RNA sequence: UGCCCCGUAGCUCAGUGGCAGUAGCAGUCGCCUGUUAAGCGAACGGUCGCAGGUUCAAUCCCUGUCGGGGCAG
Numbered sequence: 001u002g003c004c005c006c007g008u009a010g011c012u013c014a015g016u017g018g019c020a021g022u023a024g025c026a027g028u029c030g031c032c033u034g035u036u037a038a039g040c041g042a043a044c045g046g047u048c049g050c051a052g053g054u055u056c057a058a059u060c061c062c063u064g065u066c067g068g069g070g071c072a073g
Base pairs, nucleotide, nucleotide: 001072002071003070004069005068006067007066010025011024012023028042029041030040031039049065050064051063052062053061
RNA: tRNA